[Rfam]
RNA: Archaeal signal recognition particle RNA
RNA sequence: CGGCGGGAAAGGCCGGGGAGCUAGCCCUUCCCUGUAACCUGAAAUGGGCUACAUGCAGGGGCCUGAUAACCCGUGGUGCGCCUGAGGCUGCCCACAUGGAGGCUGGGUGUAGGCCGUGAGGAUACGCCGGGAUGGGGCGGCGUAGGGGUGUAAGGCCCUUGUAGGAGGGCCCCAGACCCCUCACACACCGAACCGUGUCAGGCCCGGGAGGGAGCAGCACUAAGGUGUGGCGCCGCAGCCAUUCCAUAAGCGUGUCCGAGCUGAAACCCAGAACAACAUGUGGGUAAGUGCUUGCCAGCCACGGGGGCCGCCG
Numbered sequence: 001c002g003g004c005g006g007g008a009a010a011g012g013c014c015g016g017g018g019a020g021c022u023a024g025c026c027c028u029u030c031c032c033u034g035u036a037a038c039c040u041g042a043a044a045u046g047g048g049c050u051a052c053a054u055g056c057a058g059g060g061g062c063c064u065g066a067u068a069a070c071c072c073g074u075g076g077u078g079c080g081c082c083u084g085a086g087g088c089u090g091c092c093c094a095c096a097u098g099g100a101g102g103c104u105g106g107g108u109g110u111a112g113g114c115c116g117u118g119a120g121g122a123u124a125c126g127c128c129g130g131g132a133u134g135g136g137g138c139g140g141c142g143u144a145g146g147g148g149u150g151u152a153a154g155g156c157c158c159u160u161g162u163a164g165g166a167g168g169g170c171c172c173c174a175g176a177c178c179c180c181u182c183a184c185a186c187a188c189c190g191a192a193c194c195g196u197g198u199c200a201g202g203c204c205c206g207g208g209a210g211g212g213a214g215c216a217g218c219a220c221u222a223a224g225g226u227g228u229g230g231c232g233c234c235g236c237a238g239c240c241a242u243u244c245c246a247u248a249a250g251c252g253u254g255u256c257c258g259a260g261c262u263g264a265a266a267c268c269c270a271g272a273a274c275a276a277c278a279u280g281u282g283g284g285u286a287a288g289u290g291c292u293u294g295c296c297a298g299c300c301a302c303g304g305g306g307g308c309c310g311c312c313g
Stems, first nucleotide, its partner, number of pairs: 001313006010064005015033006038059004043054001070305008080295002085289001089286010103271006110264001112262003120257008129245007137236007144181006151174001154171007185228005195220004203212003